[Rfam]
RNA sequence: UGUGUGUUGCGGGGCCAUAGUAGAAGCAUUCAUGUUGCAAUCCCUGUCAGGUAAUACCUACAAAUUCUGCU
Numbered sequence: 001u002g003u004g005u006g007u008u009g010c011g012g013g014g015c016c017a018u019a020g021u022a023g024a025a026g027c028a029u030u031c032a033u034g035u036u037g038c039a040a041u042c043c044c045u046g047u048c049a050g051g052u053a054a055u056a057c058c059u060a061c062a063a064a065u066u067c068u069g070c071u
Stems, first nucleotide, its partner, number of pairs: 011044004019071007026038003049059004